The family of this 179-nucleotide RNA sequence from Paenibacillus sp. GSMTC-2017 is "c-di-AMP riboswitch aptamer (ydaO/yuaA leader)". It scores 94 bits against the family's covariance model. NCBI's taxonomy places the organism under Bacteria, Bacillati, Bacillota, Bacilli, Paenibacillus. Rfam's curators write: This family represents a conserved RNA structure found upstream of the ydaO and yuaA genes in Bacillus subtilis and related genes in other bacteria. The ydaO/yuaA element is thought to act as a genetic 'off' switch for the ydaO and yuaA genes in its native state. It is believed that the element may be triggered during osmotic shock leading to activation of ydaO, a predicted amino acid transporter gene, and members of the yuaA-yubG operon which code for KtrA and KtrB K+ transporters. A reference for the family is Barrick et al. (2004), "New RNA motifs suggest an expanded scope for riboswitches in bacterial genetic control", Proc Natl Acad Sci U S A.
RNA sequence: UAAACAAUAACGCUGAAUUUUUCAAUUUUGAGAAAGCGGGGGAACCAACGCGAACAAUCAUUCUAUGGAACUGAAUGUGAUGUUCACAAGGGGUGAAUCCGGGGAUUUGUGCCCCCGGUAGGGUCUACUCUCUAGCCCGAAUCCGACAGCUAACCUCGUAAGCGGUCAAAGGAGAGUUG
Dot-bracket structure: ..........((((...((((((......))))))((((((....(...........................................)(((.....((((((........))))))..((((..........))))...))).........)))))).))))...............